[Rfam]
RNA sequence: CUGCACGUUGCACCCCGGGCUUCUCUGAAAAUGUAUUUCAAUGAAGAAGAAAGCCCCAAUGCUCGUGCUAAAUCAAUUUAUUUAUUGGUCGUUCAGUGUUGCAAAUCAACUUUAUUUCUUUCUCCACAGUUGAUCUGUGUCAAAGUAACGUCUAUAUUU
Numbered sequence: 001c002u003g004c005a006c007g008u009u010g011c012a013c014c015c016c017g018g019g020c021u022u023c024u025c026u027g028a029a030a031a032u033g034u035a036u037u038u039c040a041a042u043g044a045a046g047a048a049g050a051a052a053g054c055c056c057c058a059a060u061g062c063u064c065g066u067g068c069u070a071a072a073u074c075a076a077u078u079u080a081u082u083u084a085u086u087g088g089u090c091g092u093u094c095a096g097u098g099u100u101g102c103a104a105a106u107c108a109a110c111u112u113u114a115u116u117u118c119u120u121u122c123u124c125c126a127c128a129g130u131u132g133a134u135c136u137g138u139g140u141c142a143a144a145g146u147a148a149c150g151u152c153u154a155u156a157u158u159u
Base pairs, nucleotide, nucleotide: 003068004067005066006065007064010062011061017056018055019054020053021052022050023049024047025046026045088152090150091149092148093147097142098141100139101138102137103136105134109130110129111128

Notes:
A member of the RNA family "small nucleolar RNA snoR134" from Aquilegia coerulea, 159 nucleotides long. A search with the family's covariance model found it, with a score of 108 bits. It is annotated as an H/ACA-box small nucleolar RNA. Its family is annotated with nucleolus and RNA processing in the Gene Ontology.